[Rfam]
RNA: Group II catalytic intron D1-D4-3
Organism: Bacillus sp. FJAT-49711
Nucleotides: 174
Base pairs, nucleotide, nucleotide: 001016002015003014004013005012006011028174030172032170036165040160041159042158043157044156045155046151047150048149049148050147062146063145064144065143066142067141073138074137075136077134079132080131081130082129083128084127086114087113088112089111092107093106094105095104
Number, partner (000 for none) and nucleotide at each position: 001016u002015c003014c004013a005012c006011g007000g008000u009000g010000a011006c012005g013004u014003g015002g016001a017000a018000u019000c020000u021000g022000a023000a024000g025000g026000a027000a028174g029000c030172g031000a032170g033000c034000g035000g036165c037000a038000a039000a040160c041159c042158u043157c044156c045155g046151g047150u048149c049148u050147g051000a052000g053000g054000a055000a056000c057000a058000c059000g060000a061000a062146c063145u064144u065143c066142a067141u068000a069000u070000u071000a072000g073138g074137c075136u076000a077134u078000u079132u080131a081130c082129g083128a084127u085000u086114g087113g088112g089111u090000g091000a092107g093106u094105u095104u096000g097000c098000a099000g100000u101000a102000c103000a104095g105094a106093a107092c108000a109000a110000a111089g112088c113087c114086c115000u116000u117000u118000c119000u120000g121000c122000c123000g124000a125000a126000g127084g128083u129082u130081g131080u132079a133000u134077g135000u136075a137074g138073u139000a140000a141067a142066u143065g144064a145063a146062g147050c148049a149048g150047a151046u152000a153000g154000g155045u156044g157043g158042a159041g160040g161000g162000a163000a164000a165036g166000a167000c168000u169000a170032c171000g172030u173000u174028c